[Rfam]
The record is a 119-nucleotide RNA from Ardeotis kori, which matches "Small nucleolar RNA SNORA61" in Rfam. About the family: ACA61 is a member of the H/ACA class of snoRNA that guide the sites of modification of uridines to pseudouridines. Gene Ontology terms of the family: RNA processing and nucleolus. The family's consensus secondary structure was predicted with PFOLD.
RNA sequence: UCCCUCCAGAUCCCUUUCCCAUCAGAUCUGCAUACCGAUCUUGUGGUCGAAAAAGGAGGAAAAACAACAUUCAAACUGGUCUCGGCCUCUGUGCUGGGGCAGUCCUGCUCUGAGCGGGG
Number, nucleotide and partner (000 for none) at each position: 001u000002c000003c059004c058005u057006c056007c055008a000009g000010a000011u000012c000013c000014c000015u000016u000017u000018c000019c046020c045021a044022u000023c043024a000025g040026a039027u038028c037029u000030g000031c000032a000033u000034a000035c000036c000037g028038a027039u026040c025041u000042u000043g023044u021045g020046g019047u000048c000049g000050a000051a000052a000053a000054a000055g007056g006057a005058g004059g003060a000061a000062a000063a000064a000065c000066a000067a000068c000069a000070u000071u000072c000073a000074a000075a000076c107077u000078g105079g104080u000081c102082u101083c000084g000085g000086c000087c000088u000089c000090u000091g000092u000093g000094c000095u000096g000097g000098g000099g000100c000101a082102g081103u000104c079105c078106u000107g076108c000109u000110c000111u000112g000113a000114g000115c000116g000117g000118g000119g000